The family of this 94-nucleotide sequence is "PhotoRC-II RNA". The family's consensus secondary structure is taken from published work.
RNA sequence: UAACGUUUUUUUGUCGCCUUACCAAGACUAAACAGCGACAUUAAAUAACAGUCUUUCAUACCUCUACUAAGGGUGUAGAGGAAUAGUAACUCCA
Number, nucleotide and partner (000 for none) at each position: 001u000002a000003a000004c000005g000006u000007u000008u000009u000010u000011u000012u000013g039014u038015c037016g036017c035018c000019u000020u034021a000022c000023c000024a055025a054026g053027a052028c051029u000030a000031a000032a000033c000034a020035g017036c016037g015038a014039c013040a000041u000042u000043a000044a000045a000046u000047a000048a000049c000050a000051g028052u027053c026054u025055u024056u000057c000058a000059u000060a000061c081062c080063u079064c078065u077066a076067c075068u000069a000070a000071g000072g000073g000074u000075g067076u066077a065078g064079a063080g062081g061082a000083a000084u000085a000086g000087u000088a000089a000090c000091u000092c000093c000094a000